A member of the RNA family "NiCo (Nickel/Cobalt) riboswitch aptamer" from Ruminiclostridium cellulolyticum, 104 nucleotides long. The family is grouped with related families in Rfam's "NiCo_riboswitches". The literature on the family includes a 2015 paper in Mol Cell by Furukawa et al., "Bacterial riboswitches cooperatively bind Ni(2+) or Co(2+) ions and control expression of heavy metal transporters". The organism belongs to Ruminiclostridium cellulolyticum, within Bacteria.
[Rfam]
RNA sequence: ACAGUACAAACUGAGCAGGCGAUGGACCUUUCAUAGAGGUACAUGGGGCCGGGCCACCCAGUGAGUGGCAGCAGAUUGCAAUCAUGCACAUCUGUGGGACAGUA
Numbered sequence: 001a002c003a004g005u006a007c008a009a010a011c012u013g014a015g016c017a018g019g020c021g022a023u024g025g026a027c028c029u030u031u032c033a034u035a036g037a038g039g040u041a042c043a044u045g046g047g048g049c050c051g052g053g054c055c056a057c058c059c060a061g062u063g064a065g066u067g068g069c070a071g072c073a074g075a076u077u078g079c080a081a082u083c084a085u086g087c088a089c090a091u092c093u094g095u096g097g098g099a100c101a102g103u104a
Stems, first nucleotide, its partner, number of pairs: 010103004016098001018050003022044003026040003053069005071095006